Record summary
A member of the RNA family "c-di-AMP riboswitch aptamer (ydaO/yuaA leader)" from Alkalihalophilus pseudofirmus, 166 nucleotides long. This family represents a conserved RNA structure found upstream of the ydaO and yuaA genes in Bacillus subtilis and related genes in other bacteria. The ydaO/yuaA element is thought to act as a genetic 'off' switch for the ydaO and yuaA genes in its native state. It is believed that the element may be triggered during osmotic shock leading to activation of ydaO, a predicted amino acid transporter gene, and members of the yuaA-yubG operon which code for KtrA and KtrB K+ transporters.

RNA sequence: ACCUUUUAAUCGCUUAAACUGACAAGGAUUACACCUUUUUAGUGCGGGGGAACCAAUGAAUUUGGCAAGGAUUAUAUUGUCUUGGGGUGAGUCUUCAUAAUUGAAGAAGGGAUACUCUCAGUUCCUAACCCGACAGCUAACUCCGUAAGCGUUAAAUGUAGAAGAG
Numbered sequence: 001a002c003c004u005u006u007u008a009a010u011c012g013c014u015u016a017a018a019c020u021g022a023c024a025a026g027g028a029u030u031a032c033a034c035c036u037u038u039u040u041a042g043u044g045c046g047g048g049g050g051a052a053c054c055a056a057u058g059a060a061u062u063u064g065g066c067a068a069g070g071a072u073u074a075u076a077u078u079g080u081c082u083u084g085g086g087g088u089g090a091g092u093c094u095u096c097a098u099a100a101u102u103g104a105a106g107a108a109g110g111g112a113u114a115c116u117c118u119c120a121g122u123u124c125c126u127a128a129c130c131c132g133a134c135a136g137c138u139a140a141c142u143c144c145g146u147a148a149g150c151g152u153u154a155a156a157u158g159u160a161g162a163a164g165a166g
Stems, first nucleotide, its partner, number of pairs: 011151004018043005044146006054084002085131003093106004109125004